[Rfam]
The record is a 199-nucleotide RNA from Perca fluviatilis, which matches "Small nucleolar RNA SNORA53" in Rfam.
It scores 80 bits against the family's covariance model.
From the family's description: The snoRNA ACA53 belongs to the H/ACA family of pseudouridylation guide snoRNAs.
RNA sequence: AACACGCUCCUUAGAUCCACCUCUGGAGGGCGCUGUGCUCUGAGCAGAGCUCCUCAUCAGCUUGCUGGCUGUACAGUUGGAGGUGCUUGAGUCAUUGGCGUGUGAGAACAGUCUACCUGUCCCCCAGCCCAACUGCAACACUGGCAACCCUGUCCUCUGCAGGGAACUCCCUGUGCUGCAAGCCUGGGGGACGGACAUG
Numbered sequence: 001a002a003c004a005c006g007c008u009c010c011u012u013a014g015a016u017c018c019a020c021c022u023c024u025g026g027a028g029g030g031c032g033c034u035g036u037g038c039u040c041u042g043a044g045c046a047g048a049g050c051u052c053c054u055c056a057u058c059a060g061c062u063u064g065c066u067g068g069c070u071g072u073a074c075a076g077u078u079g080g081a082g083g084u085g086c087u088u089g090a091g092u093c094a095u096u097g098g099c100g101u102g103u104g105a106g107a108a109c110a111g112u113c114u115a116c117c118u119g120u121c122c123c124c125c126a127g128c129c130c131a132a133c134u135g136c137a138a139c140a141c142u143g144g145c146a147a148c149c150c151u152g153u154c155c156u157c158u159g160c161a162g163g164g165a166a167c168u169c170c171c172u173g174u175g176c177u178g179c180a181a182g183c184c185u186g187g188g189g190g191a192c193g194g195a196c197a198u199g
Base pairs, nucleotide, nucleotide: 002103003102004101005100006099007098008097010091011090012089013088014087018085019084020083021082022081023080024079025078026055027054028053029052030050031049036046037045038044058071059070060069061068062067117194118193119192120191121190124187126185127184129182136178137177139175140174141173143171144170146168148163149162